[Rfam]
RNA sequence: ACAGUCUUUGCUAGGUAAGGACUAACCAUCCACCUAUAUCGAGUGUUGCGCCUUGAAUUGGUAACAAUUCAGGUGAAGUGUACACAUAAGUAGAGAACCAAAAACCUGAAUUUUGGUUUUUGUGUGAAUCACUUAGUAUGUUUCUUAGAGAACUUUUUAGGCCAGAGGGAAGACCGUAAUUCCUGAAGCAUAUUGAGCCCCGUUAGUAGCGGUGUCCUGGAAACAGGAGAAAUGCAGAUGAUGACGUAGUUAACGUUGCGGAAGUCAAUACGAAGGAAUCGUAAAAGGUGAGAUUCCGGAGGGUCUGUCGGGGUCAGAGAACC
Number, nucleotide and partner (000 for none) at each position: 001a000002c000003a000004g000005u000006c000007u000008u000009u000010g000011c000012u036013a035014g034015g033016u000017a000018a000019g031020g030021a029022c000023u291024a000025a289026c288027c000028a000029u021030c020031c019032a000033c015034c014035u013036a012037u000038a000039u094040c093041g000042a000043g085044u084045g083046u082047u080048g079049c075050g074051c073052c072053u000054u071055g070056a069057a068058u067059u066060g065061g000062u000063a000064a000065c060066a059067a058068u057069u056070c055071a054072g052073g051074u050075g049076a000077a000078g000079u048080g047081u000082a046083c045084a044085c043086a000087u000088a000089a000090g000091u000092a000093g040094a039095g000096a000097a000098c000099c000100a000101a000102a000103a000104a000105c000106c000107u000108g000109a000110a000111u000112u000113u000114u000115g000116g000117u000118u000119u000120u000121u000122g000123u000124g000125u000126g000127a000128a000129u000130c000131a000132c000133u000134u000135a000136g000137u000138a000139u000140g000141u000142u000143u000144c000145u000146u000147a000148g000149a000150g000151a000152a000153c000154u000155u000156u000157u000158u000159a000160g000161g000162c000163c000164a000165g000166a000167g000168g000169g000170a000171a000172g000173a000174c000175c000176g000177u000178a000179a000180u000181u000182c000183c000184u000185g000186a000187a000188g000189c000190a000191u000192a000193u000194u317195g315196a000197g314198c313199c312200c311201c310202g309203u000204u000205a000206g000207u000208a000209g000210c000211g000212g000213u000214g000215u000216c000217c000218u000219g000220g000221a000222a000223a000224c000225a000226g000227g000228a000229g000230a000231a000232a000233u000234g308235c307236a306237g305238a304239u303240g266241a265242u264243g000244a000245c260246g259247u258248a257249g000250u000251u000252a000253a000254c000255g000256u000257u248258g247259c246260g245261g000262a000263a000264g242265u241266c240267a000268a000269u000270a000271c302272g000273a000274a000275g297276g296277a295278a294279u293280c292281g000282u000283a000284a000285a000286a000287g000288g026289u025290g000291a023292g280293a279294u278295u277296c276297c275298g000299g000300a000301g000302g271303g239304u238305c237306u236307g235308u234309c202310g201311g200312g199313g198314u197315c195316a000317g194318a000319g000320a000321a000322c000323c000

Notes: Shown here is a 323-nucleotide sequence from Selenihalanaerobacter shriftii, a member of the family "Group II catalytic intron D1-D4-6". For this family Rfam cites "The ins and outs of group II introns" (Bonen and Vogel, Trends Genet, 2001). About the family: Group II introns are found in rRNA, tRNA and mRNA of organelles in fungi, plants and protists, and also in mRNA in bacteria. A search with the family's covariance model found it, with a score of 110 bits. Taxonomically the source falls in Selenihalanaerobacter (Bacteria, Bacillati, Clostridia, Halobacteroidaceae). The family has 174 seed sequences and 1,617 matches in Rfam 15.1.